[Rfam]
RNA sequence: GGACUGUUAGCUUAGUUGGUAGAGCAGGGGACUCUUAAUCCCAAGGUCCGGGGUUCGAGUCCCCGACAGUCCA
Numbered sequence: 001g002g003a004c005u006g007u008u009a010g011c012u013u014a015g016u017u018g019g020u021a022g023a024g025c026a027g028g029g030g031a032c033u034c035u036u037a038a039u040c041c042c043a044a045g046g047u048c049c050g051g052g053g054u055u056c057g058a059g060u061c062c063c064c065g066a067c068a069g070u071c072c073a
Stems, first nucleotide, its partner, number of pairs: 001072007010025004028042004049065005